The record is a 53-nucleotide sequence from Kribbella turkmenica, which matches "msiK RNA" in Rfam.
RNA sequence: GGGGCCUUUGCUACGGACCGUCCGGCACGUUCCUGCCGGCGAAGGAAGGAAGC
Numbered sequence: 001g002g003g004g005c006c007u008u009u010g011c012u013a014c015g016g017a018c019c020g021u022c023c024g025g026c027a028c029g030u031u032c033c034u035g036c037c038g039g040c041g042a043a044g045g046a047a048g049g050a051a052g053c
Base pairs, nucleotide, nucleotide: 005045006044007043008042009041010040022039023038024037025036026035027034
Rfam classes the family as a cis-regulatory element.
The family's consensus secondary structure is taken from published work.
The source organism's lineage runs through Bacteria, Bacillati, Actinomycetes, Kribbellaceae and Kribbella.